About this RNA: The record is a 92-nucleotide RNA from Sorghum bicolor, which matches "MIR5387 microRNA precursor family" in Rfam. The family's consensus secondary structure was predicted with RNAalifold. It scores 75 bits against the family's covariance model. Lineage of the source: Eukaryota > Streptophyta > Mesangiospermae > Poales > Sorghum.

[Rfam]
RNA sequence: CCGUGGCACUGACCGGUGCUAAAGGGUCCCUGCCCCGACAUACCUGUCAGUAGCCGUUGGGCAGGACCUUUAGCACCGGUUCGUGUUAUGAA
Dot-bracket structure: ..(((((((.(((((((((((((((.(.((...(((.((....((...)).....)).)))..)))))))))))))))))).)))))))...